[Rfam]
RNA sequence: GCGAGAACCAUGUGAAUCACUACACUCUUUGAUUCACAUGGUUCUCGC
Numbered sequence: 001g002c003g004a005g006a007a008c009c010a011u012g013u014g015a016a017u018c019a020c021u022a023c024a025c026u027c028u029u030u031g032a033u034u035c036a037c038a039u040g041g042u043u044c045u046c047g048c
Stems, first nucleotide, its partner, number of pairs: 001048019
Shown here is a 48-nucleotide sequence from Cynara cardunculus, a member of the family "Plastid-ccsA-ndhD-1 3UTR RNA". NCBI's taxonomy places the organism under Eukaryota, Euphyllophyta, Gunneridae, Cardueae, Cynara cardunculus subsp. cardunculus. It is annotated as a cis-regulatory element. Rfam describes the family as follows. Plastid-ccsA-ndhD-1 is a non-coding RNA (ncRNA) recognised in plastids. It was found in the three prime untranslated region (3UTR) of ccsA and ndhD genes, its 3UTR location suggests a role in transcript maturation. A search with the family's covariance model found it, with a score of 51 bits. Rfam 15.1 lists 1,322 matches to the family in 557 species.